[Rfam]
RNA sequence: UACUGCAUGUGAUGAUUUAAAAAUAUCAAUGGGAAUCUCUCUGAAUAAGGAUGAGGGAGCUCUUCAAACUGAGUCAGUA
Numbered sequence: 001u002a003c004u005g006c007a008u009g010u011g012a013u014g015a016u017u018u019a020a021a022a023a024u025a026u027c028a029a030u031g032g033g034a035a036u037c038u039c040u041c042u043g044a045a046u047a048a049g050g051a052u053g054a055g056g057g058a059g060c061u062c063u064u065c066a067a068a069c070u071g072a073g074u075c076a077g078u079a
Stems, first nucleotide, its partner, number of pairs: 001079005
This 79-nucleotide RNA from Hymenochirus boettgeri belongs to the Rfam family "Small nucleolar RNA SNORD79". The literature on the family includes a 2002 paper in Mol Cell Biol by Galardi et al., "Purified box C/D snoRNPs are able to reproduce site-specific 2'-O-methylation of target RNA in vitro". Lineage of the source: Eukaryota > Craniata > Vertebrata > Dipnotetrapodomorpha > Hymenochirus. Clan: SNORD74 clan. It scores 66 bits against the family's covariance model. Rfam describes the family as follows. snoRNA U79 or Z22 is found in intron 7 of the gas5 gene in humans and is also present in mice. It is annotated as a C/D-box small nucleolar RNA.